Ribosomal protein L10 leader: a 186-nucleotide RNA from Oscillatoriales cyanobacterium USR001. From the family's description: This family is a putative r-protein leader autoregulatory structure found in B. subtilis and other low-GC Gram-positive bacteria. It is located in the 5' untranslated regions of mRNAs encoding ribosomal proteins L10 and L12 (rplJ-rplL).
[Rfam]
RNA sequence: AAUAACAAAUCAAAUAAGCCACUGACAGCAGGUGUUAAUACCUUAAUUUCCUGCCGAGGCUAAGAAAAUAAAAAUUUAAGCUGAAAGUUAAAUUUAGAAAUUCUGGGAAUUUUUAAAGUUUACUUUUUAAAGUUUAUUUUUUAAUUCUUUGCCCCGGCUUGAAAGUCGGGGUUUUUGAUUGGGAGU
Numbered sequence: 001a002a003u004a005a006c007a008a009a010u011c012a013a014a015u016a017a018g019c020c021a022c023u024g025a026c027a028g029c030a031g032g033u034g035u036u037a038a039u040a041c042c043u044u045a046a047u048u049u050c051c052u053g054c055c056g057a058g059g060c061u062a063a064g065a066a067a068a069u070a071a072a073a074a075u076u077u078a079a080g081c082u083g084a085a086a087g088u089u090a091a092a093u094u095u096a097g098a099a100a101u102u103c104u105g106g107g108a109a110u111u112u113u114u115a116a117a118g119u120u121u122a123c124u125u126u127u128u129a130a131a132g133u134u135u136a137u138u139u140u141u142u143a144a145u146u147c148u149u150u151g152c153c154c155c156g157g158c159u160u161g162a163a164a165g166u167c168g169g170g171g172u173u174u175u176u177g178a179u180u181g182g183g184a185g186u
Stems, first nucleotide, its partner, number of pairs: 028054005034042001036040001152171008
Taxonomically the source falls in Oscillatoriales (Bacteria, Bacillati, Cyanophyceae, Oscillatoriophycideae). The base pairs follow the family's consensus structure, which was predicted with CMfinder.